Background
Shown here is an 83-nucleotide RNA from Aquilegia coerulea, a member of the family "mir-156 microRNA precursor family". The source organism's lineage runs through Eukaryota, Viridiplantae, Streptophytina, Thalictroideae and Aquilegia. About the family: This family represents the plant microRNA (miRNA) precursor mir-156. The family has 10 seed sequences and 1,401 matches in Rfam 15.1. A search with the family's covariance model found it, with a score of 70 bits.
RNA sequence: CUGACAGAAGAGAGUGAGCACACACUGGCAAUUUGUAUAAGACUAUAUUCUUGCCGGUGUGUGCUCACUUCCCUUUCUGUCAG
Numbered sequence: 001c002u003g004a005c006a007g008a009a010g011a012g013a014g015u016g017a018g019c020a021c022a023c024a025c026u027g028g029c030a031a032u033u034u035g036u037a038u039a040a041g042a043c044u045a046u047a048u049u050c051u052u053g054c055c056g057g058u059g060u061g062u063g064c065u066c067a068c069u070u071c072c073c074u075u076u077c078u079g080u081c082a083g
Stems, first nucleotide, its partner, number of pairs: 001083009010073001012071001013069009023059003